[Rfam]
RNA sequence: AUACUUACCUGGCAGGGGAGAUAUCAUGAUCACGAAGGUGGUUUUCCCAGGGCAUGUCUUAUCCAUUGCACUACAGGUGUGCUGAACCCUGUGAUUUCCCCAAAUGUGGGAAACUUGACCACAUAAUCUGUGGUAGUAGGGGAAAAAAAUGUUAAAAGAAAAAAGAGGUAAUUUAUCCUCUU
Numbered sequence: 001a002u003a004c005u006u007a008c009c010u011g012g013c014a015g016g017g018g019a020g021a022u023a024u025c026a027u028g029a030u031c032a033c034g035a036a037g038g039u040g041g042u043u044u045u046c047c048c049a050g051g052g053c054a055u056g057u058c059u060u061a062u063c064c065a066u067u068g069c070a071c072u073a074c075a076g077g078u079g080u081g082c083u084g085a086a087c088c089c090u091g092u093g094a095u096u097u098c099c100c101c102a103a104a105u106g107u108g109g110g111a112a113a114c115u116u117g118a119c120c121a122c123a124u125a126a127u128c129u130g131u132g133g134u135a136g137u138a139g140g141g142g143a144a145a146a147a148a149a150u151g152u153u154a155a156a157a158g159a160a161a162a163a164a165g166a167g168g169u170a171a172u173u174u175a176u177c178c179u180c181u182u
Stems, first nucleotide, its partner, number of pairs: 012122001015119001016048006023042005049090004056083001058081001060079004092117003095113003099109002138181005144176001146174003
The family of this 182-nucleotide sequence from Monodon monoceros is "U1 spliceosomal RNA".
The match comes from Rfam's covariance-model search (112 bits).
On this family, see Zwieb, Nucleic Acids Res 1997: "The uRNA database".
The base pairs follow the family's consensus structure, which is taken from published work.